[Rfam]
The family of this 87-nucleotide sequence from Sphingopyxis alaskensis is "tRNA". Pairs were carried over by alignment from the consensus structure, which is taken from published work.

RNA sequence: GGAGAGUUGGCUGAGUGGUCGAAAGCGUCGCACUCGAAAUGCGAAGUGCCCGCAAGGGUACCGAGGGUUCGAAUCCCUCACUCUCCU
Numbered sequence: 001g002g003a004g005a006g007u008u009g010g011c012u013g014a015g016u017g018g019u020c021g022a023a024a025g026c027g028u029c030g031c032a033c034u035c036g037a038a039a040u041g042c043g044a045a046g047u048g049c050c051c052g053c054a055a056g057g058g059u060a061c062c063g064a065g066g067g068u069u070c071g072a073a074u075c076c077c078u079c080a081c082u083c084u085c086c087u
Base pairs, nucleotide, nucleotide: 001086002085003084004083005082006081007080010026011025012024028044029043030042031041032040063079064078065077066076067075
The match comes from Rfam's covariance-model search (64 bits).
The source organism's lineage runs through Bacteria, Pseudomonadati, Pseudomonadota, Sphingopyxis and Sphingopyxis alaskensis.
Its family is annotated with triplet codon-amino acid adaptor activity in the Gene Ontology.